[Rfam]
RNA: bZIP non canonical Hac1/Xbp1 intron
Organism: Xylaria hypoxylon
RNA sequence: UACUUCUUCUGACGUGACACAACAUCCAGCAGCGGUGUUGUGCGACCUGCAGUGUCCGACAGUCGAAGUU
Numbered sequence: 001u002a003c004u005u006c007u008u009c010u011g012a013c014g015u016g017a018c019a020c021a022a023c024a025u026c027c028a029g030c031a032g033c034g035g036u037g038u039u040g041u042g043c044g045a046c047c048u049g050c051a052g053u054g055u056c057c058g059a060c061a062g063u064c065g066a067a068g069u070u
Stems, first nucleotide, its partner, number of pairs: 002069005009062003013058001021039006044056003